RNA sequence: CAAGUAUUCAAACAACUUGCCAAUAUAAUCUGGGAGGUAUGGUCCCAAAGUUUCUACCAAACGCCUUAUGCUCGUUUGACUAUUGGUUUUACGAUAGCUUUG
Number, nucleotide and partner (000 for none) at each position: 001c000002a000003a000004g000005u000006a000007u000008u000009c000010a000011a000012a000013c000014a000015a000016c000017u000018u000019g087020c086021c085022a084023a083024u082025a081026u000027a000028a000029u049030c000031u047032g046033g045034g044035a043036g000037g000038u000039a000040u000041g000042g000043u035044c034045c033046c032047a031048a000049a029050g000051u000052u000053u000054c000055u000056a000057c000058c078059a077060a076061a075062c074063g073064c000065c000066u000067u000068a000069u000070g000071c000072u000073c063074g062075u061076u060077u059078g058079a000080c000081u025082a024083u023084u022085g021086g020087u019088u000089u000090u000091a000092c000093g000094a000095u000096a000097g000098c000099u000100u000101u000102g000
Annotation:
The family of this 102-nucleotide RNA from Amygdalobacter nucleatus is "Purine riboswitch aptamer". The family's consensus secondary structure is taken from published work. The match comes from Rfam's covariance-model search (58 bits). The organism belongs to Amygdalobacter, within Bacteria. From the family's description: Riboswitches are metabolite binding domains within certain messenger RNAs that serve as precision sensors for their corresponding targets.